The record is a 97-nucleotide RNA sequence from Carya illinoinensis, which matches "Small nucleolar RNA Z43" in Rfam. Lineage of the source: Eukaryota > Streptophytina > Pentapetalae > Juglandaceae > Carya.
RNA sequence: GGACUGUGACGAUUUGUGUGAAAGGUCUCGUUCGUCGUAAUUGGCUCUUUGGGCCUUGCCGACCAUCCUGAUAUAUCACCACCCAUAUUCUGAGUCC
Numbered sequence: 001g002g003a004c005u006g007u008g009a010c011g012a013u014u015u016g017u018g019u020g021a022a023a024g025g026u027c028u029c030g031u032u033c034g035u036c037g038u039a040a041u042u043g044g045c046u047c048u049u050u051g052g053g054c055c056u057u058g059c060c061g062a063c064c065a066u067c068c069u070g071a072u073a074u075a076u077c078a079c080c081a082c083c084c085a086u087a088u089u090c091u092g093a094g095u096c097c
Stems, first nucleotide, its partner, number of pairs: 001097004047052001